[Rfam]
RNA sequence: GACAAUCUUCAGGGCAAGGUGAAAUUCCUGACCGGCGGUAAUGGCGUACGUACGUCUGAGCCCGCGACUCGCUGACCACACUUGCAGCGACUGAUCUGGUGAAAGUCCAGAGCCGACGGUACAGUCCGGAUGGAAGAAGAUUUUG
Dot-bracket structure: ...(((((((......(((.......))).[[((((((.....................[[))))...((..................))....(((((.......)))))]])).(((....]]))).......)))))))...
Numbered sequence: 001g002a003c004a005a006u007c008u009u010c011a012g013g014g015c016a017a018g019g020u021g022a023a024a025u026u027c028c029u030g031a032c033c034g035g036c037g038g039u040a041a042u043g044g045c046g047u048a049c050g051u052a053c054g055u056c057u058g059a060g061c062c063c064g065c066g067a068c069u070c071g072c073u074g075a076c077c078a079c080a081c082u083u084g085c086a087g088c089g090a091c092u093g094a095u096c097u098g099g100u101g102a103a104a105g106u107c108c109a110g111a112g113c114c115g116a117c118g119g120u121a122c123a124g125u126c127c128g129g130a131u132g133g134a135a136g137a138a139g140a141u142u143u144u145g
Stems, first nucleotide, its partner, number of pairs: 004142007017029003031125002033115002035065004060113002069090002095111005117128003
This 145-nucleotide sequence from Brevibacillus brevis belongs to the Rfam family "FMN riboswitch aptamer (RFN element)".
Taxonomically the source falls in Brevibacillus brevis (Bacteria, Bacillati, Bacillota, Caryophanales).
It scores 118 bits against the family's covariance model.